A member of the RNA family "Mason-Pfizer monkey virus packaging signal" from Prolemur simus, 292 nucleotides long. Rfam 15.1 lists 2,921 matches to the family in 53 species. A search with the family's covariance model found it, with a score of 191 bits. About the family: This family represents a group of sequences that are related to the Mason-Pfizer monkey virus (MPMV) packaging signal. The packaging signal is located in the 5' UTR and is required for specific RNA encapsidation. The family's consensus secondary structure was predicted with PFOLD.
Nucleotides: 292
Stems, first nucleotide, its partner, number of pairs: 006032003012027003036063001039060001102143002105140002110134002114130005151170002155167004176219003179215002226268008236254005278291003282287001
Number, partner (000 for none) and nucleotide at each position: 001000u002000g003000g004000c005000g006032c007031c008030c009000a010000a011000c012027g013026u014025g015000g016000g017000g018000c019000u020000g021000u022000g023000g024000a025014u026013a027012c028000g029000a030008g031007g032006g033000g034000u035000c036063c037000a038000g039060u040000g041000a042000g043000g044000a045000c046000g047000g048000a049000c050000g051000c052000g053000u054000a055000g056000u057000g058000c059000c060039g061000g062000c063036g064000u065000g066000u067000g068000a069000a070000g071000u072000c073000u074000c075000g076000a077000a078000g079000g080000g081000a082000g083000a084000c085000g086000a087000a088000a089000g090000u091000g092000a093000a094000a095000a096000g097000u098000a099000a100000a101000u102143u103142c104000c105140u106139u107000c108000g109000g110134c111133c112000a113000u114130c115129g116128c117127g118126g119000g120000a121000g122000c123000c124000u125000g126118c127117u128116g129115c130114g131000c132000u133111g134110g135000a136000a137000c138000g139106g140105a141000a142103g143102g144000u145000g146000a147000g148000a149000a150000g151170u152169g153000c154000g155167u156166c157165c158164g159000a160000a161000a162000a163000a164158u165157g166156g167155g168000u169152c170151a171000g172000g173000a174000a175000c176219u177218a178217a179215g180214u181000a182000a183000g184000c185000a186000u187000c188000a189000g190000c191000u192000u193000u194000a195000u196000g197000u198000u199000a200000a201000g202000a203000a204000g205000u206000u207000a208000a209000a210000g211000g212000a213000a214180g215179c216000u217178u218177u219176a220000a221000a222000g223000a224000c225000a226268c227267a228266a229265g230264g231263a232262g233261u234000a235000a236254a237253g238252g239251u240250u241000a242000a243000a244000g245000g246000a247000c248000a249000a250240g251239a252238u253237u254236u255000a256000u257000u258000u259000a260000a261233a262232u263231u264230u265229u266228u267227u268226g269000a270000u271000u272000u273000u274000g275000u276000g277000c278291a279290g280289g281000a282287u283000a284000u285000c286000u287282g288000c289280c290279c291278u292000u